[Rfam]
RNA sequence: CCUGUGGAGAGUUACAUCAAAUGUUAGUAGGGGGAUAGUGCCGAGGACAGAUUCUAUGAAGCAGGAA
Numbered sequence: 001c002c003u004g005u006g007g008a009g010a011g012u013u014a015c016a017u018c019a020a021a022u023g024u025u026a027g028u029a030g031g032g033g034g035a036u037a038g039u040g041c042c043g044a045g046g047a048c049a050g051a052u053u054c055u056a057u058g059a060a061g062c063a064g065g066a067a
Stems, first nucleotide, its partner, number of pairs: 001065005009054005022049003030042002

A member of the RNA family "RAGATH-18 RNA" from Epulopiscium sp. Nele67-Bin004, 67 nucleotides long. By type it is a small RNA. Taxonomically the source falls in Candidatus Epulonipiscium (Bacteria, Bacillati, Bacillota, Clostridia).